Shown here is an 89-nucleotide RNA sequence from Branchiostoma belcheri, a member of the family "mir-2060 microRNA precursor family". A search with the family's covariance model found it, with a score of 75 bits. The family has 7 seed sequences and 3,696 matches in Rfam 15.1.
RNA sequence: CCUGUGUGUGGAUGGUGUUCAGUACCAAGGGCAGACAUGUUCACCUGUGUGUGGAUGGUGUUCAGCACCAAGGACAGGCAUGUUCACCA
Numbered sequence: 001c002c003u004g005u006g007u008g009u010g011g012a013u014g015g016u017g018u019u020c021a022g023u024a025c026c027a028a029g030g031g032c033a034g035a036c037a038u039g040u041u042c043a044c045c046u047g048u049g050u051g052u053g054g055a056u057g058g059u060g061u062u063c064a065g066c067a068c069c070a071a072g073g074a075c076a077g078g079c080a081u082g083u084u085c086a087c088c089a
Stems, first nucleotide, its partner, number of pairs: 001078005013070007021062007029050001031048004